[Rfam]
RNA sequence: ACUCUCUUGGCUCUGUAUAGUUACACCUAGCUUCACUUGUGUGACUUUUGCAAUGGGAAGAGAGAAAAAAGGUCCCUUGGUACUUCAGCUCAGCCUUAUGGUGGCCUCUUUCCUUGAAGGGUGCAACAAAA
Numbered sequence: 001a002c003u004c005u006c007u008u009g010g011c012u013c014u015g016u017a018u019a020g021u022u023a024c025a026c027c028u029a030g031c032u033u034c035a036c037u038u039g040u041g042u043g044a045c046u047u048u049u050g051c052a053a054u055g056g057g058a059a060g061a062g063a064g065a066a067a068a069a070a071g072g073u074c075c076c077u078u079g080g081u082a083c084u085u086c087a088g089c090u091c092a093g094c095c096u097u098a099u100g101g102u103g104g105c106c107u108c109u110u111u112c113c114u115u116g117a118a119g120g121g122u123g124c125a126a127c128a129a130a131a
Base pairs, nucleotide, nucleotide: 003065004064005063006062007061008060012057013056014055015054019046020045021044022043023042024041025040026039074121075120076119077118078117079114080113087109088108093105094104095103
This 131-nucleotide RNA sequence from Mandrillus leucophaeus belongs to the Rfam family "Small nucleolar RNA SNORA64/SNORA10 family". Rfam's curators write: This family belongs to the H/ACA class of small nucleolar RNAs (snoRNAs) which act as guides in the the modification of uridines to pseudouridines. This family includes the human snoRNAs U64 and ACA10 and mouse MBI-29. The family's consensus secondary structure is taken from published work. A search with the family's covariance model found it, with a score of 85 bits. A reference for the family is Narayanan et al. (1999), "Nucleolar localization signals of box H/ACA small nucleolar RNAs", EMBO J.